[Rfam]
RNA sequence: GCUGUUCUGGAUCUGUCAGCACUGCAGGUACAGCGGCUGGGCUCUGUCUAUGACACUGGGGCAAAGAGCAAGUGACUAUUUCUAUACUCAGCUUUCAGAAGCCAGUCAGCACUGAGAAUGGUAUAUAGCCUGACAUUC
Number, nucleotide and partner (000 for none) at each position: 001g000002c000003u063004g062005u061006u060007c059008u058009g057010g056011a000012u000013c000014u000015g000016u000017c000018a000019g000020c000021a000022c000023u000024g051025c000026a049027g048028g000029u000030a000031c000032a000033g000034c000035g000036g000037c000038u000039g000040g000041g000042c000043u000044c000045u000046g000047u000048c027049u026050a000051u024052g000053a000054c000055a000056c010057u009058g008059g007060g006061g005062c004063a003064a000065a000066g000067a000068g000069c000070a000071a000072g000073u000074g130075a000076c128077u000078a000079u000080u000081u000082c121083u120084a119085u000086a000087c116088u115089c000090a000091g000092c000093u000094u109095u108096c000097a106098g000099a000100a000101g000102c000103c000104a000105g000106u097107c000108a095109g094110c000111a000112c000113u000114g000115a088116g087117a000118a000119u084120g083121g082122u000123a000124u000125a000126u000127a000128g076129c000130c074131u000132g000133a000134c000135a000136u000137u000138c000